Rfam assigns this 54-nucleotide RNA sequence from Salmo salar to the family "UnaL2 LINE 3' element". For this family Rfam cites "Solution structure of an RNA stem-loop derived from the 3' conserved region of eel LINE UnaL2" (Baba et al., RNA, 2004). NCBI's taxonomy places the organism under Eukaryota, Eumetazoa, Vertebrata, Neopterygii, Salmo. About the family: The eel long interspersed element (LINE) UnaL2 and its partner short interspersed element (SINE) share a conserved 3' tail containing a stem-loop that is critical for their retrotransposition. Presumably, the first step of retrotransposition is the recognition of their 3' tails by UnaL2-encoded reverse transcriptase. The solution structure of a 17-nucleotide RNA derived from the 3' tail of UnaL2 was determined by NMR.
RNA sequence: GUAUUGUACUACUGUAAGUUGCUCUGGAUAAGAGUGUCUGCUAAAUGACUAAAA
Dot-bracket structure: ............((((...((((((.....))))))..))).)...........
Numbered sequence: 001g002u003a004u005u006g007u008a009c010u011a012c013u014g015u016a017a018g019u020u021g022c023u024c025u026g027g028a029u030a031a032g033a034g035u036g037u038c039u040g041c042u043a044a045a046u047g048a049c050u051a052a053a054a
Stems, first nucleotide, its partner, number of pairs: 013043001014041003020036006